[Rfam]
RNA sequence: UGCCGCCGCCCAUUCUGGGUGUUCCUCCCGAGACUUGACCGCGCUGCCCCCGGCAGUGCGGUUCUUUUUUGCCGGG
Numbered sequence: 001u002g003c004c005g006c007c008g009c010c011c012a013u014u015c016u017g018g019g020u021g022u023u024c025c026u027c028c029c030g031a032g033a034c035u036u037g038a039c040c041g042c043g044c045u046g047c048c049c050c051c052g053g054c055a056g057u058g059c060g061g062u063u064c065u066u067u068u069u070u071g072c073c074g075g076g
Stems, first nucleotide, its partner, number of pairs: 008020004039061009